[Rfam]
Rfam assigns this 205-nucleotide sequence to the family "Group II catalytic intron D1-D4-3".

RNA sequence: UCCGCCGCGAGGCGGAAUCUGAAGGAAGCCGGAGGCAAAGUUCCAAGCCGACGAACAGGAACCGCAUAUGAGGCAUGGCAAGGCGGACGAGUUUGCCGAACAAAACGAAGUCCAAAAGGCCGGGGAGUAAGAGAAUAAACCCCGACCGUACUGCCCGAACCUUGCAGUGUAGAUGCGGCGGCCGCAUGGAAUGAAGGUUAUCGGA
Numbered sequence: 001u002c003c004g005c006c007g008c009g010a011g012g013c014g015g016a017a018u019c020u021g022a023a024g025g026a027a028g029c030c031g032g033a034g035g036c037a038a039a040g041u042u043c044c045a046a047g048c049c050g051a052c053g054a055a056c057a058g059g060a061a062c063c064g065c066a067u068a069u070g071a072g073g074c075a076u077g078g079c080a081a082g083g084c085g086g087a088c089g090a091g092u093u094u095g096c097c098g099a100a101c102a103a104a105a106c107g108a109a110g111u112c113c114a115a116a117a118g119g120c121c122g123g124g125g126a127g128u129a130a131g132a133g134a135a136u137a138a139a140c141c142c143c144g145a146c147c148g149u150a151c152u153g154c155c156c157g158a159a160c161c162u163u164g165c166a167g168u169g170u171a172g173a174u175g176c177g178g179c180g181g182c183c184g185c186a187u188g189g190a191a192u193g194a195a196g197g198u199u200a201u202c203g204g205a
Stems, first nucleotide, its partner, number of pairs: 001016006029204004035198002040192006047182004062178006073170003076166001078165006085113004091106004
Group II introns are found in rRNA, tRNA and mRNA of organelles in fungi, plants and protists, and also in mRNA in bacteria. It is one of the family's seed sequences.